Rfam assigns this 589-nucleotide part of an RNA from Mycoplasma suis to the family "Bacterial small subunit ribosomal RNA". It is one of the family's seed sequences. The family is grouped with related families in Rfam's "SSU clan". A reference for the family is Yusupov et al. (2001), "Crystal structure of the ribosome at 5.5 A resolution", Science. Taxonomically the source falls in Mycoplasma suis (Bacteria, Mycoplasmatota, Mycoplasmataceae, Mycoplasma).
RNA sequence: UGACGGGGACCUGAACAAGUGGUGGAGCAUGUUGCUUAAUUCGAUCAUACACGCAAAACCUUACCAAGGCUUGCAAUCUUCUGCAAAGCUAUAGAAAUAUAGUGGAGGCUAUCAGAAUGACAGGUGGUGCAUGGCUGUCGUCAGCUCGUGUCUUGAGAUGUUUGGUUAAGUCCCGUAACGAGCGCAACCCUUCAUAUUAGUUGUUUAGUUCUAAUAUGACUGAAUCGUAAGAUCUAGGAAGGAUGGGGCCAAGUCAAGUCAUCAUGCCCCUUAUGCCUUGGGCUGCAAACGUGCUACAAUGGUAGAUACAAUGUGUUACAAUCUAGCGAUAGUGAGUUAAUCACCUAAAGUCUAUCUCAGUCCGGAUAAAAGGCUGCAAUUCGCCUAUUUGAAGAUGGAAUCACUAGUAAUCCUGUGUCAGCUAUAUCAGGGUGAAUACGUUCCCAGGUCUUGUACACACCGCCCGUCAAACUACGAAAGAAAGUACUAAUUAAAACCGUAUUUAAUUACGUCUAGAUUGGUAAUUUUGAUUGGAGUUAAGUCGUAACAAGGUACCCGUACGAGAACGUGCGGGUGGAUAACUUUUUAU
Numbered sequence: 001u002g003a004c005g006g007g008g009a010c011c012u013g014a015a016c017a018a019g020u021g022g023u024g025g026a027g028c029a030u031g032u033u034g035c036u037u038a039a040u041u042c043g044a045u046c047a048u049a050c051a052c053g054c055a056a057a058a059c060c061u062u063a064c065c066a067a068g069g070c071u072u073g074c075a076a077u078c079u080u081c082u083g084c085a086a087a088g089c090u091a092u093a094g095a096a097a098u099a100u101a102g103u104g105g106a107g108g109c110u111a112u113c114a115g116a117a118u119g120a121c122a123g124g125u126g127g128u129g130c131a132u133g134g135c136u137g138u139c140g141u142c143a144g145c146u147c148g149u150g151u152c153u154u155g156a157g158a159u160g161u162u163u164g165g166u167u168a169a170g171u172c173c174c175g176u177a178a179c180g181a182g183c184g185c186a187a188c189c190c191u192u193c194a195u196a197u198u199a200g201u202u203g204u205u206u207a208g209u210u211c212u213a214a215u216a217u218g219a220c221u222g223a224a225u226c227g228u229a230a231g232a233u234c235u236a237g238g239a240a241g242g243a244u245g246g247g248g249c250c251a252a253g254u255c256a257a258g259u260c261a262u263c264a265u266g267c268c269c270c271u272u273a274u275g276c277c278u279u280g281g282g283c284u285g286c287a288a289a290c291g292u293g294c295u296a297c298a299a300u301g302g303u304a305g306a307u308a309c310a311a312u313g314u315g316u317u318a319c320a321a322u323c324u325a326g327c328g329a330u331a332g333u334g335a336g337u338u339a340a341u342c343a344c345c346u347a348a349a350g351u352c353u354a355u356c357u358c359a360g361u362c363c364g365g366a367u368a369a370a371a372g373g374c375u376g377c378a379a380u381u382c383g384c385c386u387a388u389u390u391g392a393a394g395a396u397g398g399a400a401u402c403a404c405u406a407g408u409a410a411u412c413c414u415g416u417g418u419c420a421g422c423u424a425u426a427u428c429a430g431g432g433u434g435a436a437u438a439c440g441u442u443c444c445c446a447g448g449u450c451u452u453g454u455a456c457a458c459a460c461c462g463c464c465c466g467u468c469a470a471a472c473u474a475c476g477a478a479a480g481a482a483a484g485u486a487c488u489a490a491u492u493a494a495a496a497c498c499g500u501a502u503u504u505a506a507u508u509a510c511g512u513c514u515a516g517a518u519u520g521g522u523a524a525u526u527u528u529g530a531u532u533g534g535a536g537u538u539a540a541g542u543c544g545u546a547a548c549a550a551g552g553u554a555c556c557c558g559u560a561c562g563a564g565a566a567c568g569u570g571c572g573g574g575u576g577g578a579u580a581a582c583u584u585u586u587u588a589u
Stems, first nucleotide, its partner, number of pairs: 001457002003454003007451007015441002019404005024297001026295008034286002040055001042053002064281007077120002079117005088103006123270002126268004132264002134259003137255001139253001144183006150159003162175001164173002189247003194217007220238002223235001224233003301356007313344003318337002323332003363394001368389002371386004410433006460551001462548001465544002470538004475533003480528004485523007498511004553576010